[Rfam]
The family of this 78-nucleotide sequence from Pyrus ussuriensis x Pyrus communis is "MIR3627 microRNA precursor family". Taxonomically the source falls in Pyrus (Eukaryota, Magnoliopsida, eudicotyledons, rosids). Rfam 15.1 lists 24 matches to the family in 10 species. Rfam links the family to the GO terms miRNA-mediated post-transcriptional gene silencing and RISC complex.
RNA sequence: GGGGAUUUAUGUUCGCAGGAGAGAUGGCACUAAUUGUACCAACAGUUGUUGCCAUCUCUCAUGUGACCAAAAAUCUCU
Numbered sequence: 001g002g003g004g005a006u007u008u009a010u011g012u013u014c015g016c017a018g019g020a021g022a023g024a025u026g027g028c029a030c031u032a033a034u035u036g037u038a039c040c041a042a043c044a045g046u047u048g049u050u051g052c053c054a055u056c057u058c059u060c061a062u063g064u065g066a067c068c069a070a071a072a073a074u075c076u077c078u
Stems, first nucleotide, its partner, number of pairs: 002077003006073003010069002013066005019060011031048007